[Rfam]
RNA sequence: GAUUUAUACAGAAGCGGGGAGAGAUCAGGCUCUUCGAACCGCUGGCAACCUACCACUUGGCAAGGUGCUAACUCCUGCCUAAAAUGACCCAAACGUGGUCAUUAGGAACUAUAAAUC
Numbered sequence: 001g002a003u004u005u006a007u008a009c010a011g012a013a014g015c016g017g018g019g020a021g022a023g024a025u026c027a028g029g030c031u032c033u034u035c036g037a038a039c040c041g042c043u044g045g046c047a048a049c050c051u052a053c054c055a056c057u058u059g060g061c062a063a064g065g066u067g068c069u070a071a072c073u074c075c076u077g078c079c080u081a082a083a084a085u086g087a088c089c090c091a092a093a094c095g096u097g098g099u100c101a102u103u104a105g106g107a108a109c110u111a112u113a114a115a116u117c
Base pairs, nucleotide, nucleotide: 001117002116003115004114005113006112007111008110013043014042015041016040017039021032022031023030026077027076028075029074044069045068046067047066049065050064051062053060054059078106079105080104081103082102
Rfam assigns this 117-nucleotide sequence from Spirosoma montaniterrae to the family "SAM riboswitch aptamer (S box leader)".
From the family's description: The SAM riboswitch is found upstream of a number of genes which code for proteins involved in methionine or cysteine biosynthesis in Gram-positive bacteria.
The family's consensus secondary structure is taken from published work.